About this RNA:
The family of this 125-nucleotide RNA from Streptomyces subrutilus is "Streptomyces RNA 3920". The family's RNA type in Rfam is small RNA. NCBI's taxonomy places the organism under Bacteria, Bacillati, Actinomycetes, Kitasatosporales, Streptomyces. The pairing is the family consensus, mapped onto this sequence. Identified by deep sequencing of transcriptome at the end of exponential growth phase. Sequencing size consistent with northern blot size. Streptomyces specific.
[Rfam]
RNA sequence: GAUAGCCACCUGUCGUUACCGUGAUUGGACUCUGACGCAGAGUCAACUAGCCUUGCCACGUGGUUCUUCGCCGGGGGAACCCAGGGCGGUCCGAGCCACGAGGGGGGAGGCUCGGACCGCCGUCC
Numbered sequence: 001g002a003u004a005g006c007c008a009c010c011u012g013u014c015g016u017u018a019c020c021g022u023g024a025u026u027g028g029a030c031u032c033u034g035a036c037g038c039a040g041a042g043u044c045a046a047c048u049a050g051c052c053u054u055g056c057c058a059c060g061u062g063g064u065u066c067u068u069c070g071c072c073g074g075g076g077g078a079a080c081c082c083a084g085g086g087c088g089g090u091c092c093g094a095g096c097c098a099c100g101a102g103g104g105g106g107g108a109g110g111c112u113c114g115g116a117c118c119g120c121c122g123u124c125c
Stems, first nucleotide, its partner, number of pairs: 001014005015051004021032001023030001033045004057074001060071004075082002085121013099106001